Rfam assigns this 90-nucleotide RNA from Aegilops tauschii to the family "MIR5387 microRNA precursor family". It scores 69 bits against the family's covariance model. Its family is annotated with miRNA-mediated post-transcriptional gene silencing and RISC complex in the Gene Ontology. The base pairs follow the family's consensus structure, which was predicted with RNAalifold. The organism belongs to Aegilops tauschii, within Eukaryota.
[Rfam]
RNA sequence: UCGUGGCACAAACCGGGACCAAAGGCCUUUAGUCCCGGUUCGUGGCACCAACCGGGACUAAAGGCCUUUGGUCCCGGUUGGUGCCACGAA
Numbered sequence: 001u002c003g004u005g006g007c008a009c010a011a012a013c014c015g016g017g018a019c020c021a022a023a024g025g026c027c028u029u030u031a032g033u034c035c036c037g038g039u040u041c042g043u044g045g046c047a048c049c050a051a052c053c054g055g056g057a058c059u060a061a062a063g064g065c066c067u068u069u070g071g072u073c074c075c076g077g078u079u080g081g082u083g084c085c086a087c088g089a090a
Base pairs, nucleotide, nucleotide: 003087004086005085006084007083008082009081011079012078013077014076015075016074017073018072019071020070021069022068023067024066025065026064027063029061030060034056035055036054042048043047